[Rfam]
RNA sequence: CGGGAACAACCGACGUUAGGGAAUUCGGCAAUCUGGUCCCGUAAGUUCGCGAUAAGGGAUGCCUGCUCAGGAGAUGAGCAGGUCGCAGUGACUCGGACGCUCCGACUGUCUAGUAACAACAUAGGUGACCGCAAAUCCGCAAGGACUCGUACGGUCACUGAAUCCUGCCCAGUGCGGGUAUCUGAACACCCAGUACAAUGGGACGAAGGACCCGUCAACGGCGGGGGUAACUAUGACCCUCUUAAGGUAGCGUAGUACCUUGCCGCUUCAGUAGCGGCUUGCAUGAAUGGAUCAACGAGAGCGUCGCUGUCCCAACGUUGGGCCCGGUGAACUGUACGUUCCAGUGCGGAGUCUGGAGA
Numbered sequence: 001c002g003g004g005a006a007c008a009a010c011c012g013a014c015g016u017u018a019g020g021g022a023a024u025u026c027g028g029c030a031a032u033c034u035g036g037u038c039c040c041g042u043a044a045g046u047u048c049g050c051g052a053u054a055a056g057g058g059a060u061g062c063c064u065g066c067u068c069a070g071g072a073g074a075u076g077a078g079c080a081g082g083u084c085g086c087a088g089u090g091a092c093u094c095g096g097a098c099g100c101u102c103c104g105a106c107u108g109u110c111u112a113g114u115a116a117c118a119a120c121a122u123a124g125g126u127g128a129c130c131g132c133a134a135a136u137c138c139g140c141a142a143g144g145a146c147u148c149g150u151a152c153g154g155u156c157a158c159u160g161a162a163u164c165c166u167g168c169c170c171a172g173u174g175c176g177g178g179u180a181u182c183u184g185a186a187c188a189c190c191c192a193g194u195a196c197a198a199u200g201g202g203a204c205g206a207a208g209g210a211c212c213c214g215u216c217a218a219c220g221g222c223g224g225g226g227g228u229a230a231c232u233a234u235g236a237c238c239c240u241c242u243u244a245a246g247g248u249a250g251c252g253u254a255g256u257a258c259c260u261u262g263c264c265g266c267u268u269c270a271g272u273a274g275c276g277g278c279u280u281g282c283a284u285g286a287a288u289g290g291a292u293c294a295a296c297g298a299g300a301g302c303g304u305c306g307c308u309g310u311c312c313c314a315a316c317g318u319u320g321g322g323c324c325c326g327g328u329g330a331a332c333u334g335u336a337c338g339u340u341c342c343a344g345u346g347c348g349g350a351g352u353c354u355g356g357a358g359a
Stems, first nucleotide, its partner, number of pairs: 001326004010321008019312003036060005045050001061083009084088001096305007103297002107121003124159008132149001136145003162292004167222003172219002174215005181210003189202004223241006242246001262278006340357005
Dot-bracket structure: ((((.....((((((((.(((..............(((((....(....).....)))))(((((((((.....)))))))))(...).......(((((((((..(((.........)))..(((((((((...(((....)))...)..))))))))..((((.(((..(((((((..(((.....((((......)))).....))))))))..)))))((((((.......))))))(...)...............((((((.....))))))..........))))...)).)))))))....))).)))))))).)))).............(((((........)))))..
RNA: Archaeal large subunit ribosomal RNA, nucleotides 1716 to 2074